RNA: ASdes TB sRNA
RNA sequence: AGCGCGACCGGGUCCACCGCCCGGGUGGCGUGCAGGUAGUCGCGGAUGGCGAUCCCGUGCCUGCCCUC
Numbered sequence: 001a002g003c004g005c006g007a008c009c010g011g012g013u014c015c016a017c018c019g020c021c022c023g024g025g026u027g028g029c030g031u032g033c034a035g036g037u038a039g040u041c042g043c044g045g046a047u048g049g050c051g052a053u054c055c056c057g058u059g060c061c062u063g064c065c066c067u068c
Stems, first nucleotide, its partner, number of pairs: 006061001008059001012029002015027004035056002038053001040052004